The record is a 97-nucleotide RNA from Sagittula stellata, which matches "Rhodo-rpoB RNA" in Rfam. A search with the family's covariance model found it, with a score of 56 bits. It is annotated as a cis-regulatory element. The source organism's lineage runs through Bacteria, Pseudomonadati, Pseudomonadota, Rhodobacterales and Sagittula stellata.
[Rfam]
RNA sequence: CGGUCGAGUGGCACGCGGUGGGACGCGCGCCGAGAAUGGACCCGUCGACCCGCCGUCACUGACGUGAACCGCCGCUGUGGCCCCGGCAGCGUGCAGG
Numbered sequence: 001c002g003g004u005c006g007a008g009u010g011g012c013a014c015g016c017g018g019u020g021g022g023a024c025g026c027g028c029g030c031c032g033a034g035a036a037u038g039g040a041c042c043c044g045u046c047g048a049c050c051c052g053c054c055g056u057c058a059c060u061g062a063c064g065u066g067a068a069c070c071g072c073c074g075c076u077g078u079g080g081c082c083c084c085g086g087c088a089g090c091g092u093g094c095a096g097g
Stems, first nucleotide, its partner, number of pairs: 002042004010031003014027004069096001071094002073091005